[Rfam]
RNA sequence: UUCCCAGUAAGAUAUGUUUGAUAUUCUUGGUUGUUACAUUCAAAAGUUCACCCAGGAAUCAAACAUAUUAUUAUUGUGCU
Numbered sequence: 001u002u003c004c005c006a007g008u009a010a011g012a013u014a015u016g017u018u019u020g021a022u023a024u025u026c027u028u029g030g031u032u033g034u035u036a037c038a039u040u041c042a043a044a045a046g047u048u049c050a051c052c053c054a055g056g057a058a059u060c061a062a063a064c065a066u067a068u069u070a071u072u073a074u075u076g077u078g079c080u
Stems, first nucleotide, its partner, number of pairs: 005076005011069012024056002029053002032050002
RNA: mir-190 microRNA precursor family